[Rfam]
RNA: M-box riboswitch aptamer (ykoK leader)
RNA sequence: UAGGUGUCCCGUUAGGUGAGGCUCCUGCGUGUGUAUGCGUCCGCUGCCCAGAAAGGUCGAGAGACCCCCACGGGUUGAACAGGCCGGAGCCGAAUCAAGGCCCGGCAUAAUGCGGACCGGCGACCGGUCGGGUGACCCGGCUGGCUCUCCUAGACGCGCAGUGCUGAAGCUCUGACGUAGGGAACGCUCC
Numbered sequence: 001u002a003g004g005u006g007u008c009c010c011g012u013u014a015g016g017u018g019a020g021g022c023u024c025c026u027g028c029g030u031g032u033g034u035a036u037g038c039g040u041c042c043g044c045u046g047c048c049c050a051g052a053a054a055g056g057u058c059g060a061g062a063g064a065c066c067c068c069c070a071c072g073g074g075u076u077g078a079a080c081a082g083g084c085c086g087g088a089g090c091c092g093a094a095u096c097a098a099g100g101c102c103c104g105g106c107a108u109a110a111u112g113c114g115g116a117c118c119g120g121c122g123a124c125c126g127g128u129c130g131g132g133u134g135a136c137c138c139g140g141c142u143g144g145c146u147c148u149c150c151u152a153g154a155c156g157c158g159c160a161g162u163g164c165u166g167a168a169g170c171u172c173u174g175a176c177g178u179a180g181g182g183a184a185c186g187c188u189c190c
Stems, first nucleotide, its partner, number of pairs: 005186003009182002011176002013098001015171003020165003025161008039117001041115004046075004055066004083106003089101003119149001